[Rfam]
RNA sequence: AAUAUGGCUGCUGAAAUUAAUAUGGUAAUUCUAGCAGACAUAAGUCCUAUGCCAAAAUUAUCAUAUUAAUUUCAGCAGCCAUAUUAA
Numbered sequence: 001a002a003u004a005u006g007g008c009u010g011c012u013g014a015a016a017u018u019a020a021u022a023u024g025g026u027a028a029u030u031c032u033a034g035c036a037g038a039c040a041u042a043a044g045u046c047c048u049a050u051g052c053c054a055a056a057a058u059u060a061u062c063a064u065a066u067u068a069a070u071u072u073c074a075g076c077a078g079c080c081a082u083a084u085u086a087a
Base pairs, nucleotide, nucleotide: 001085002084003083004082005081006080007079009077010076011075012074013073014072015071016070017069018068019067020066021065022064023063024062025061026060027059029057030056032054034052035051036050037046038045039044

This 87-nucleotide sequence from Dictyostelium discoideum belongs to the Rfam family "mir-7131 microRNA precursor family". A search with the family's covariance model found it, with a score of 94 bits.